Rfam assigns this 55-nucleotide sequence from Byrsonima coccolobifolia to the family "Plastid-psbA-4 3UTR RNA".
For this family Rfam cites "Retrograde signaling in plants: A critical review focusing on the GUN pathway and beyond" (Richter et al., Plant Commun, 2023).
[Rfam]
RNA sequence: AAAAGGAGCAAUACCUAAUCUCUUGAUAGAACAAGAGAUUAGGUAUUGCUCCUUU
Numbered sequence: 001a002a003a004a005g006g007a008g009c010a011a012u013a014c015c016u017a018a019u020c021u022c023u024u025g026a027u028a029g030a031a032c033a034a035g036a037g038a039u040u041a042g043g044u045a046u047u048g049c050u051c052c053u054u055u
Stems, first nucleotide, its partner, number of pairs: 002055012017040002020037006
Dot-bracket structure: .((((((((((((...((.((((((......)))))).))...))))))))))))
The family's RNA type in Rfam is cis-regulatory element. Rfam's curators write: Plastid psbA-4 is a non-coding RNA (ncRNA) present in plastids. It was identified in inverted repeat sequences in the 3 prime untranslate region (3UTR) of photosystem II quinone-binding protein (psbA). The base pairs follow the family's consensus structure, which was predicted with LocARNA. The family is grouped with related families in Rfam's "Plastid-psbA 3UTR RNA clan".